[Rfam]
RNA sequence: UUCAGUGAAGUGAUGAGUUUAUUCAUGUCUCUUCUCUGACAACUCACUGGAGAGAUUUGUAAACAUUUCUGAUCACUGUA
Numbered sequence: 001u002u003c004a005g006u007g008a009a010g011u012g013a014u015g016a017g018u019u020u021a022u023u024c025a026u027g028u029c030u031c032u033u034c035u036c037u038g039a040c041a042a043c044u045c046a047c048u049g050g051a052g053a054g055a056u057u058u059g060u061a062a063a064c065a066u067u068u069c070u071g072a073u074c075a076c077u078g079u080a
Stems, first nucleotide, its partner, number of pairs: 001080001003078003
RNA: Small nucleolar RNA SNORD111
Organism: Clarias magur